A member of the RNA family "Streptomyces sRNA 4677" from Streptomyces roseus, 227 nucleotides long.
Rfam describes the family as follows. Located in the intergenic region between anti-sigma factor SCO4677 gene and a putative regulatory protein gene SCO4676. scr4677 expression requires the SCO4677 activity and scr4677 sRNA itself seem to affect the levels of the SCO4676-associated transcripts.
Lineage of the source: Bacteria > Bacillati > Actinomycetota > Actinomycetes > Streptomyces.
It scores 56 bits against the family's covariance model.

RNA sequence: AUAGCCGGUGACGCUCGACGUCUAAAGACAAACAACCGGGGGAAAUGACCUCUCCCCACCUCCCCCACCCCUCUCACUCGGACGGGUGAAUCACCCCAACCCGGCUGGCGCAUAUGCCAAUCCGUCGGGCACGCUUGCCCCCGACAACCCCAUAACGCAAUUCGGCCCUCGCUCGGGACGCCAAUCCCGCCGAGGGCCUGACCAAGAGAAGGCUAGAGCCCCUUCCC
Numbered sequence: 001a002u003a004g005c006c007g008g009u010g011a012c013g014c015u016c017g018a019c020g021u022c023u024a025a026a027g028a029c030a031a032a033c034a035a036c037c038g039g040g041g042g043a044a045a046u047g048a049c050c051u052c053u054c055c056c057c058a059c060c061u062c063c064c065c066c067a068c069c070c071c072u073c074u075c076a077c078u079c080g081g082a083c084g085g086g087u088g089a090a091u092c093a094c095c096c097c098a099a100c101c102c103g104g105c106u107g108g109c110g111c112a113u114a115u116g117c118c119a120a121u122c123c124g125u126c127g128g129g130c131a132c133g134c135u136u137g138c139c140c141c142c143g144a145c146a147a148c149c150c151c152a153u154a155a156c157g158c159a160a161u162u163c164g165g166c167c168c169u170c171g172c173u174c175g176g177g178a179c180g181c182c183a184a185u186c187c188c189g190c191c192g193a194g195g196g197c198c199u200g201a202c203c204a205a206g207a208g209a210a211g212g213c214u215a216g217a218g219c220c221c222c223u224u225c226c227c
Stems, first nucleotide, its partner, number of pairs: 004203001007069004074089006104134002106131002164198005170192002175188004208225005

The family's RNA type in Rfam is small RNA.